[Rfam]
RNA: c-di-AMP riboswitch aptamer (ydaO/yuaA leader)
Organism: Thermoleophilum album
RNA sequence: ACGCCCCUCACGCCGAGUCCUCGUCGCUCAGGCGGCGGGGAGCGGGGGAACCACCGGGUGGCCCGGCCACCCAGGGGCGAAUCGCCGCGAUCGCGGCGUAGCGCACAGCGCGAGCCCGUCAGCUCACCCCGUAGGCGCACGACGAGAUGGAAC
Numbered sequence: 001a002c003g004c005c006c007c008u009c010a011c012g013c014c015g016a017g018u019c020c021u022c023g024u025c026g027c028u029c030a031g032g033c034g035g036c037g038g039g040g041a042g043c044g045g046g047g048g049a050a051c052c053a054c055c056g057g058g059u060g061g062c063c064c065g066g067c068c069a070c071c072c073a074g075g076g077g078c079g080a081a082u083c084g085c086c087g088c089g090a091u092c093g094c095g096g097c098g099u100a101g102c103g104c105a106c107a108g109c110g111c112g113a114g115c116c117c118g119u120c121a122g123c124u125c126a127c128c129c130c131g132u133a134g135g136c137g138c139a140c141g142a143c144g145a146g147a148u149g150g151a152a153c
Stems, first nucleotide, its partner, number of pairs: 011137004018041010042132006052074001075117003083098004101111004